[Rfam]
RNA sequence: CCCUGCAAAUUAAAAAUUUUUGGUUUUGGUCCUUGGUAUUUUAUUUUAGUCCUUGUAAAAUUGAUUCAUAUUGGAUUUGAUCCUUGUAAUAUGUAGAAUAUUUGAUUUUAGUCCCUCAAAAUGAAUAUUAUAGGAACCAAUUUCAAUAUGAAAUGAUUUUACAAGGAUUAAAACAAAAUACGAAGGACCAAAACCAAAUAUUCUAUAUUUACAGGGA
Number, nucleotide and partner (000 for none) at each position: 001c000002c000003c000004u000005g000006c000007a210008a209009a208010u207011u000012a000013a204014a000015a202016a201017u000018u000019u198020u197021u000022g195023g194024u193025u192026u191027u190028g189029g188030u187031c186032c185033u184034u183035g000036g181037u180038a179039u178040u177041u176042u175043a000044u173045u172046u171047u170048a169049g000050u167051c166052c000053u164054u163055g162056u161057a160058a159059a158060a157061u156062u000063g000064a000065u152066u151067c000068a149069u148070a147071u146072u145073g144074g000075a000076u000077u140078u139079g138080a000081u136082c000083c134084u000085u000086g000087u130088a129089a128090u127091a126092u125093g000094u000095a000096g000097a000098a000099u000100a000101u000102u000103u000104g000105a122106u121107u120108u119109u118110a000111g000112u000113c000114c000115c000116u000117c000118a109119a108120a107121a106122u105123g000124a000125a092126u091127a090128u089129u088130a087131u000132a000133g000134g083135a000136a081137c000138c079139a078140a077141u000142u000143u000144c073145a072146a071147u070148a069149u068150g000151a066152a065153a000154u000155g000156a061157u060158u059159u058160u057161a056162c055163a054164a053165g000166g051167a050168u000169u048170a047171a046172a045173a044174c000175a042176a041177a040178a039179u038180a037181c036182g000183a034184a033185g032186g031187a030188c029189c028190a027191a026192a025193a024194c023195c022196a000197a020198a019199u000200a000201u016202u015203c000204u013205a000206u000207a010208u009209u008210u007211a000212c000213a000214g000215g000216g000217a000
Rfam assigns this 217-nucleotide RNA from Medicago truncatula to the family "MIR2630 microRNA precursor family".
NCBI's taxonomy places the organism under Eukaryota, Magnoliopsida, Fabaceae, Trifolieae, Medicago.
Pairs were carried over by alignment from the consensus structure, which was predicted with RNAalifold.
Gene Ontology terms of the family: miRNA-mediated post-transcriptional gene silencing and RISC complex.
A search with the family's covariance model found it, with a score of 167 bits.